[Rfam]
RNA: mir-128 microRNA precursor family
RNA sequence: CGGGGCCGUAGCACUGUCUGAGAGGUUUACAUUUCUCACAGUGAACCGGUCUCUUU
Number, nucleotide and partner (000 for none) at each position: 001c000002g053003g052004g051005g050006c049007c048008g047009u000010a000011g000012c043013a042014c041015u040016g039017u038018c000019u000020g037021a036022g035023a000024g000025g000026u000027u000028u000029a000030c000031a000032u000033u000034u000035c022036u021037c020038a017039c016040a015041g014042u013043g012044a000045a000046c000047c008048g007049g006050u005051c004052u003053c002054u000055u000056u000